[Rfam]
RNA: TPP riboswitch aptamer (THI element)
Organism: Sporomusa termitida
RNA sequence: UUAGUUGGCCGAGGGAGCUCAUGUUAUGGGCUGAGAGUGAAACUAUUAAGUUUCUUACCUCCAUUACCUGAUCGGGAUAAUACCUGCGGAGGGAGGUCGUGUGUAAUUUGU
Numbered sequence: 001u002u003a004g005u006u007g008g009c010c011g012a013g014g015g016a017g018c019u020c021a022u023g024u025u026a027u028g029g030g031c032u033g034a035g036a037g038u039g040a041a042a043c044u045a046u047u048a049a050g051u052u053u054c055u056u057a058c059c060u061c062c063a064u065u066a067c068c069u070g071a072u073c074g075g076g077a078u079a080a081u082a083c084c085u086g087c088g089g090a091g092g093g094a095g096g097u098c099g100u101g102u103g104u105a106a107u108u109u110g111u
Stems, first nucleotide, its partner, number of pairs: 006099005011061004016055001017031005039054006067092003073086004